[Rfam]
RNA sequence: CGGCUUAAUUCAGGCGAGGGAAUUCGGCAAAAUGGUCCUGUACCUUUGGUAGAAGGGAUGCCUGCUUUGUGGAAAGCAGGUCUCAGUGACUAGGGGGCUCCGACUGUUUAUUAAAAACACAGGUGACCGCAAGUCCGAAAGGAUGUGUAUGGUCGCCGAGUCCUGCCCAGUGACGGUAUCUGAAAACCCCAUUCAAGGGGACGAAGGACCGUUAAACGGCGGGGGUAACCAUGACCCUCUUAAGGUAGCGUAAUACCUUGCCGCUUAAUUGGCGGCUUGCAUGAGUGGCUUAACGAGAGCCCUACUGUCCCCGCCUUGAAGCCGGUGAAAUUGACUUACUGGCGCACAGUCCAGUAC
Numbered sequence: 001c002g003g004c005u006u007a008a009u010u011c012a013g014g015c016g017a018g019g020g021a022a023u024u025c026g027g028c029a030a031a032a033u034g035g036u037c038c039u040g041u042a043c044c045u046u047u048g049g050u051a052g053a054a055g056g057g058a059u060g061c062c063u064g065c066u067u068u069g070u071g072g073a074a075a076g077c078a079g080g081u082c083u084c085a086g087u088g089a090c091u092a093g094g095g096g097g098c099u100c101c102g103a104c105u106g107u108u109u110a111u112u113a114a115a116a117a118c119a120c121a122g123g124u125g126a127c128c129g130c131a132a133g134u135c136c137g138a139a140a141g142g143a144u145g146u147g148u149a150u151g152g153u154c155g156c157c158g159a160g161u162c163c164u165g166c167c168c169a170g171u172g173a174c175g176g177u178a179u180c181u182g183a184a185a186a187c188c189c190c191a192u193u194c195a196a197g198g199g200g201a202c203g204a205a206g207g208a209c210c211g212u213u214a215a216a217c218g219g220c221g222g223g224g225g226u227a228a229c230c231a232u233g234a235c236c237c238u239c240u241u242a243a244g245g246u247a248g249c250g251u252a253a254u255a256c257c258u259u260g261c262c263g264c265u266u267a268a269u270u271g272g273c274g275g276c277u278u279g280c281a282u283g284a285g286u287g288g289c290u291u292a293a294c295g296a297g298a299g300c301c302c303u304a305c306u307g308u309c310c311c312c313g314c315c316u317u318g319a320a321g322c323c324g325g326u327g328a329a330a331u332u333g334a335c336u337u338a339c340u341g342g343c344g345c346a347c348a349g350u351c352c353a354g355u356a357c
Stems, first nucleotide, its partner, number of pairs: 001324004009319002012316005018310003035059005044049001060081009082086001094303007101295002105119003122157008130147001133144004160290001162288002165220003170217002172213005179208003187200004221239006240244001260276006338355005